[Rfam]
RNA sequence: AUCUUAUCAAGAGUCGGGGGAGGAACUGGUCCUGUGAUCCCGCAGCAACCGUUGCUUAUAAAAGCAAAAAGGUGCUAAUUCCAGCAAGCAGUCGCUUGGCAGAUGAGAC
Numbered sequence: 001a002u003c004u005u006a007u008c009a010a011g012a013g014u015c016g017g018g019g020g021a022g023g024a025a026c027u028g029g030u031c032c033u034g035u036g037a038u039c040c041c042g043c044a045g046c047a048a049c050c051g052u053u054g055c056u057u058a059u060a061a062a063a064g065c066a067a068a069a070a071g072g073u074g075c076u077a078a079u080u081c082c083a084g085c086a087a088g089c090a091g092u093c094g095c096u097u098g099g100c101a102g103a104u105g106a107g108a109c
Stems, first nucleotide, its partner, number of pairs: 002108007013043001015042004022032003026084004044076004049072002052067003080101001085098005
RNA: SAM riboswitch aptamer (S box leader)